[Rfam]
RNA sequence: ACUCGUCUGAGCGAGGAUAAACAGGCAUUAGGCUCAGAGCGUCCCACCGCUAAUGGUGGGGGUUGCG
Numbered sequence: 001a002c003u004c005g006u007c008u009g010a011g012c013g014a015g016g017a018u019a020a021a022c023a024g025g026c027a028u029u030a031g032g033c034u035c036a037g038a039g040c041g042u043c044c045c046a047c048c049g050c051u052a053a054u055g056g057u058g059g060g061g062g063u064u065g066c067g
Stems, first nucleotide, its partner, number of pairs: 002015003006038006025066003032040001042061008
Dot-bracket structure: .[[[.((((((.]]].........[[[....[)))))).].((((((((....))))))))..]]].
Source information: This 67-nucleotide RNA from Lysinibacillus alkalisoli belongs to the Rfam family "Pistol ribozyme". The match comes from Rfam's covariance-model search (73 bits). NCBI's taxonomy places the organism under Bacteria, Bacillota, Bacilli, Caryophanales, Lysinibacillus. A reference for the family is Weinberg et al. (2015), "New classes of self-cleaving ribozymes revealed by comparative genomics analysis", Nat Chem Biol.